[Rfam]
RNA sequence: CCCAUAAGUAAUAAAAGGUCCAUUUUGGUUCCUUAGCUUUAUUGAAAGUAUUGGUUUGGUCCUUUCUGUUAAUUUAAUUCAAAAAAGGUUAAAUUUUGGUCCUUAUCUUAUUUAAUUAGUACUAGUUUGGUCUUUUAACUUAUUUAAUUAGUAUUAGUUUGAUUUCUAAACUUAACGUUUUUUUGAAUUAAAUUAACAGAAAAGAUCAAACCGAUACUUUAAAUAAAGUUAAGGAACCUAAACAGACUUUUUAUUAUUUAUGGGA
Numbered sequence: 001c002c003c004a005u006a007a008g009u010a011a012u013a014a015a016a017g018g019u020c021c022a023u024u025u026u027g028g029u030u031c032c033u034u035a036g037c038u039u040u041a042u043u044g045a046a047a048g049u050a051u052u053g054g055u056u057u058g059g060u061c062c063u064u065u066c067u068g069u070u071a072a073u074u075u076a077a078u079u080c081a082a083a084a085a086a087g088g089u090u091a092a093a094u095u096u097u098g099g100u101c102c103u104u105a106u107c108u109u110a111u112u113u114a115a116u117u118a119g120u121a122c123u124a125g126u127u128u129g130g131u132c133u134u135u136u137a138a139c140u141u142a143u144u145u146a147a148u149u150a151g152u153a154u155u156a157g158u159u160u161g162a163u164u165u166c167u168a169a170a171c172u173u174a175a176c177g178u179u180u181u182u183u184u185g186a187a188u189u190a191a192a193u194u195a196a197c198a199g200a201a202a203a204g205a206u207c208a209a210a211c212c213g214a215u216a217c218u219u220u221a222a223a224u225a226a227a228g229u230u231a232a233g234g235a236a237c238c239u240a241a242a243c244a245g246a247c248u249u250u251u252u253a254u255u256a257u258u259u260a261u262g263g264g265a
Stems, first nucleotide, its partner, number of pairs: 002263007023242003027238003031234013045220003

MIR2655 microRNA precursor family: a 265-nucleotide sequence from Medicago truncatula. It scores 202 bits against the family's covariance model. Pairs were carried over by alignment from the consensus structure, which was predicted with RNAalifold.